[Rfam]
RNA sequence: AGAAUCUGAUUUCAUUUGGUGACAUAGAUGUUUGUAGUCUUUCUCUAGCACCACAUGAAUUCAGUGUUCU
Numbered sequence: 001a002g003a004a005u006c007u008g009a010u011u012u013c014a015u016u017u018g019g020u021g022a023c024a025u026a027g028a029u030g031u032u033u034g035u036a037g038u039c040u041u042u043c044u045c046u047a048g049c050a051c052c053a054c055a056u057g058a059a060u061u062c063a064g065u066g067u068u069c070u
Stems, first nucleotide, its partner, number of pairs: 001070004006064004011059004017053005025047004
RNA: mir-29 microRNA precursor family